The record is an 82-nucleotide RNA sequence from Carlito syrichta, which matches "Small nucleolar RNA SNORD115" in Rfam.
Lineage of the source: Eukaryota > Chordata > Euteleostomi > Boreoeutheria > Carlito.
By type it is a C/D-box small nucleolar RNA.
On this family, see Cavaille et al., Proc Natl Acad Sci U S A 2000: "Identification of brain-specific and imprinted small nucleolar RNA genes exhibiting an unusual genomic organization".
The family's consensus secondary structure was predicted with PFOLD.

RNA sequence: GGGUCACUAAUAAAUUCUUUAUAUUGCCUUGAGGAGUGGUGAUGACUAAAAUAUCACGUACAAUGGCAUGACACUGAGGCCU
Numbered sequence: 001g002g003g004u005c006a007c008u009a010a011u012a013a014a015u016u017c018u019u020u021a022u023a024u025u026g027c028c029u030u031g032a033g034g035a036g037u038g039g040u041g042a043u044g045a046c047u048a049a050a051a052u053a054u055c056a057c058g059u060a061c062a063a064u065g066g067c068a069u070g071a072c073a074c075u076g077a078g079g080c081c082u
Base pairs, nucleotide, nucleotide: 001082002081003080004079005076006075008073